RNA: MIR2275 microRNA precursor family
Nucleotides: 096
Stems, first nucleotide, its partner, number of pairs: 004093003008089001011086004016080006023073002026070005032064002
Number, partner (000 for none) and nucleotide at each position: 001000u002000a003000g004093u005092c006091g007000u008089a009000u010000a011086u012085g013084a014083g015000u016080g017079u018078u019077g020076g021075a022000g023073g024072g025000u026070a027069c028068c029067a030066a031000a032064c033063a034000a035000a036000u037000c038000g039000g040000c041000u042000a043000u044000c045000a046000u047000a048000u049000u050000a051000g052000u053000g054000a055000u056000u057000a058000c059000a060000a061000u062000u063033u064032g065000u066030u067029u068028g069027g070026u071000u072024u073023c074000c075021u076020c077019c078018a079017a080016c081000a082000u083014c084013u085012c086011a087000u088000c089008u090000c091006c092005g093004a094000c095000u096000c